[Rfam]
RNA sequence: GGUGAUAAACGUUGCUCAAAAUAAGCAAUACGGACCCGGGGGCAGAACCCGGCACCUCCACCAAAACAAUAUAUGGGGGUGACACAGCUUCGACGUUUGUGGUAAAGGUGUAAUUUUCACUCAGCAUGAUACCGCUGUAUAAUGGAUCAUUUUACAAAUGCCAACGAUAACAAUGGUAUUGGACUUGUAGCAGCAAACGAUAACUUCCAAGCGGAAGUUGCAAACGCUGCAUAG
Numbered sequence: 001g002g003u004g005a006u007a008a009a010c011g012u013u014g015c016u017c018a019a020a021a022u023a024a025g026c027a028a029u030a031c032g033g034a035c036c037c038g039g040g041g042g043c044a045g046a047a048c049c050c051g052g053c054a055c056c057u058c059c060a061c062c063a064a065a066a067c068a069a070u071a072u073a074u075g076g077g078g079g080u081g082a083c084a085c086a087g088c089u090u091c092g093a094c095g096u097u098u099g100u101g102g103u104a105a106a107g108g109u110g111u112a113a114u115u116u117u118c119a120c121u122c123a124g125c126a127u128g129a130u131a132c133c134g135c136u137g138u139a140u141a142a143u144g145g146a147u148c149a150u151u152u153u154a155c156a157a158a159u160g161c162c163a164a165c166g167a168u169a170a171c172a173a174u175g176g177u178a179u180u181g182g183a184c185u186u187g188u189a190g191c192a193g194c195a196a197a198c199g200a201u202a203a204c205u206u207c208c209a210a211g212c213g214g215a216a217g218u219u220g221c222a223a224a225c226g227c228u229g230c231a232u233a234g
Stems, first nucleotide, its partner, number of pairs: 001121005014111002017108001026099003030096003036052005053081007122137004
RNA: permuted transfer-messenger RNA
Organism: Rickettsiales endosymbiont of Stachyamoeba lipophora